[Rfam]
RNA sequence: UUUACUGUCGCUCCAAGUAAAUCUCGUGCGGCUUGUUUUUUUUAAUAUUAAGCCGUUCGAGAUUCACUUAGAAUGAUGGUGAA
Numbered sequence: 001u002u003u004a005c006u007g008u009c010g011c012u013c014c015a016a017g018u019a020a021a022u023c024u025c026g027u028g029c030g031g032c033u034u035g036u037u038u039u040u041u042u043u044a045a046u047a048u049u050a051a052g053c054c055g056u057u058c059g060a061g062a063u064u065c066a067c068u069u070a071g072a073a074u075g076a077u078g079g080u081g082a083a
Stems, first nucleotide, its partner, number of pairs: 005079006012072002015069004020064007028056008
RNA: mir-2767 microRNA precursor family